RNA: PyrR binding site
RNA sequence: UUUCCCUUUUAACGAGGUACAGAGAGACUUCAAAGGGGUAGGAAUGACAAGAGGUAAUGAUAUCUCUUUAGUUCUGCAUACCCUGAGAAGCAUUUUCUCAGGGUAUUUUUUUA
Number, nucleotide and partner (000 for none) at each position: 001u000002u000003u038004c037005c036006c035007u034008u033009u032010u000011a000012a000013c000014g031015a030016g029017g028018u027019a000020c000021a000022g000023a000024g000025a000026g000027a018028c017029u016030u015031c014032a009033a008034a007035g006036g005037g004038g003039u000040a000041g000042g000043a073044a072045u071046g000047a069048c000049a067050a000051g066052a065053g064054g063055u062056a061057a000058u000059g000060a000061u056062a055063u054064c053065u052066c051067u049068u000069u047070a000071g045072u044073u043074c000075u000076g108077c000078a106079u105080a104081c103082c102083c101084u100085g099086a098087g097088a096089a095090g000091c000092a000093u000094u000095u089096u088097c087098u086099c085100a084101g083102g082103g081104u080105a079106u078107u000108u076109u000110u000111u000112u000113a000